[Rfam]
RNA sequence: CUCUAGCCCUGAUAGAAGCGGUAUCCUUUUGUUUUUUUCUUUAAAAAACAAAAGAUACAAGCGGAUAGCAGGAAAUUGC
Numbered sequence: 001c002u003c004u005a006g007c008c009c010u011g012a013u014a015g016a017a018g019c020g021g022u023a024u025c026c027u028u029u030u031g032u033u034u035u036u037u038u039c040u041u042u043a044a045a046a047a048a049c050a051a052a053a054g055a056u057a058c059a060a061g062c063g064g065a066u067a068g069c070a071g072g073a074a075a076u077u078g079c
Stems, first nucleotide, its partner, number of pairs: 009071003013067002018062002023056003029051008

Source information: Shown here is a 79-nucleotide sequence from Flavobacterium geliluteum, a member of the family "Flavo-1 RNA". It is annotated as a small RNA. A search with the family's covariance model found it, with a score of 73 bits.